[Rfam]
RNA sequence: AAGCAGGAUUCGGACAACAGUGUAGCUGCUAAGUGCUGUGUAGUAGCUCCGUCUGCUCAAAAUAAAGUCGUUUCCUGACUAUACCUGUCUGCUCUACACUGUAGCAGCCAGGGAUGCUUGAUUUAAUAGAU
Numbered sequence: 001a002a003g004c005a006g007g008a009u010u011c012g013g014a015c016a017a018c019a020g021u022g023u024a025g026c027u028g029c030u031a032a033g034u035g036c037u038g039u040g041u042a043g044u045a046g047c048u049c050c051g052u053c054u055g056c057u058c059a060a061a062a063u064a065a066a067g068u069c070g071u072u073u074c075c076u077g078a079c080u081a082u083a084c085c086u087g088u089c090u091g092c093u094c095u096a097c098a099c100u101g102u103a104g105c106a107g108c109c110a111g112g113g114a115u116g117c118u119u120g121a122u123u124u125a126a127u128a129g130a131u
Stems, first nucleotide, its partner, number of pairs: 003056005017044002020041007084112004089107004
Small nucleolar RNA SNORA63: a 131-nucleotide RNA from Crocuta crocuta. Rfam describes the family as follows. E3 belongs to the H/ACA class of snoRNAs and is involved in the processing of eukaryotic pre-rRNA and has regions of complementarity to 18S rRNA. E3 is encoded in introns in the gene for protein synthesis initiation factor 4AII. Rfam links the family to the GO terms RNA processing and nucleolus. Taxonomically the source falls in Crocuta (Eukaryota, Opisthokonta, Eumetazoa, Bilateria). A search with the family's covariance model found it, with a score of 104 bits. For this family Rfam cites "Three small nucleolar RNAs that are involved in ribosomal RNA precursor processing" (Mishra and Eliceiri, Proc Natl Acad Sci U S A, 1997). The base pairs follow the family's consensus structure, which was predicted with PFOLD. Rfam classes the family as an H/ACA-box small nucleolar RNA.